[Rfam]
RNA sequence: AUGCAUAUGCAUUCAUGUAUGCAUAUGCAUUCAUGUAUGCAUAUUCAUUCUUGUAUGCAUACAAGCAUGCAUGUAUGCAUAUUCAUUCUUGUAUGCAUACAAGCAUGCAUAUGCAUACAUGCAUGCUUGUAUGCAUACAAGAAUGAAUAUGCAUACAUGAAUGCAUAUGCAUACAUGAAUGCAUAUGCAUACAUGAAUGCA
Numbered sequence: 001a002u003g004c005a006u007a008u009g010c011a012u013u014c015a016u017g018u019a020u021g022c023a024u025a026u027g028c029a030u031u032c033a034u035g036u037a038u039g040c041a042u043a044u045u046c047a048u049u050c051u052u053g054u055a056u057g058c059a060u061a062c063a064a065g066c067a068u069g070c071a072u073g074u075a076u077g078c079a080u081a082u083u084c085a086u087u088c089u090u091g092u093a094u095g096c097a098u099a100c101a102a103g104c105a106u107g108c109a110u111a112u113g114c115a116u117a118c119a120u121g122c123a124u125g126c127u128u129g130u131a132u133g134c135a136u137a138c139a140a141g142a143a144u145g146a147a148u149a150u151g152c153a154u155a156c157a158u159g160a161a162u163g164c165a166u167a168u169g170c171a172u173a174c175a176u177g178a179a180u181g182c183a184u185a186u187g188c189a190u191a192c193a194u195g196a197a198u199g200c201a
Base pairs, nucleotide, nucleotide: 001030002029003028004027005026006025007024008023009022010021011020038201039200040199041198042197044195045146046145048143049142050141051140053082054081055080056079057078058077059076060075061074103138105136106135107134108133110131111130113126114125115124116123147168148167149166150165151164152163153162154161184191185190
Dot-bracket structure: (((((((((((........))))))))))).......(((((.(((.((((.(((((((((............)))))))))....................(.((((.((.((((......))))...)).)))).).)))).))((((((((......))))))))...............((....))...).)))))
Shown here is a 201-nucleotide sequence from Ceratopteris richardii, a member of the family "Listeria sRNA rliA".